RNA sequence: CGUAUGGUGUACGGCAAAUCGGUGACCGUAUAGCGAUACGACUUUAGAGAGGU
Number, nucleotide and partner (000 for none) at each position: 001c040002g039003u038004a037005u036006g000007g034008u033009g000010u000011a029012c028013g027014g026015c000016a000017a000018a000019u000020c000021g000022g000023u000024g000025a000026c014027c013028g012029u011030a000031u000032a000033g008034c007035g000036a005037u004038a003039c002040g001041a000042c000043u000044u000045u000046a000047g000048a000049g000050a000051g000052g000053u000